[Rfam]
RNA sequence: CUGCAGUGAUGCUUUUCUUAGGACACCUUUGGAGUUAGCCGUGAAAUAACCAAUCAGUUCUGAGCGGC
Number, nucleotide and partner (000 for none) at each position: 001c067002u066003g065004c064005a000006g000007u000008g000009a000010u000011g000012c000013u000014u000015u000016u000017c000018u000019u000020a000021g000022g000023a000024c000025a000026c000027c000028u000029u000030u000031g000032g000033a000034g000035u000036u000037a000038g000039c000040c000041g000042u000043g000044a000045a000046a000047u000048a000049a000050c000051c000052a000053a000054u000055c000056a000057g000058u000059u000060c000061u000062g000063a000064g004065c003066g002067g001068c000

This 68-nucleotide RNA sequence from Oryctolagus cuniculus belongs to the Rfam family "Small nucleolar RNA SNORD58". The family is grouped with related families in Rfam's "SNORD58 clan". A search with the family's covariance model found it, with a score of 65 bits. The family's RNA type in Rfam is C/D-box small nucleolar RNA. The literature on the family includes a 1996 paper in Cell by Kiss-Laszlo et al., "Site-specific ribose methylation of preribosomal RNA: a novel function for small nucleolar RNAs". Rfam links the family to the GO terms nucleolus and RNA processing. Rfam's curators write: snoRNA U58 is found in introns 1, 3 and 6 of the ribosomal protein RPL17 gene in humans.